The record is a 61-nucleotide RNA from Xylophilus sp. Leaf220, which matches "Xanthine riboswitch aptamer (NMT1 RNA)" in Rfam. Lineage of the source: Bacteria > Pseudomonadati > Pseudomonadota > Burkholderiales > Xylophilus. A search with the family's covariance model found it, with a score of 40 bits. Gene Ontology term of the family: purine nucleobase binding.
RNA sequence: CGAGAGAGUAGAAGCGUUCAUCGUGCCCUGCAACGGGGCGCGCCCGGGAAUUGCUCUCCGG
Numbered sequence: 001c002g003a004g005a006g007a008g009u010a011g012a013a014g015c016g017u018u019c020a021u022c023g024u025g026c027c028c029u030g031c032a033a034c035g036g037g038g039c040g041c042g043c044c045c046g047g048g049a050a051u052u053g054c055u056c057u058c059c060g061g
Stems, first nucleotide, its partner, number of pairs: 005057006015046001018048002022042008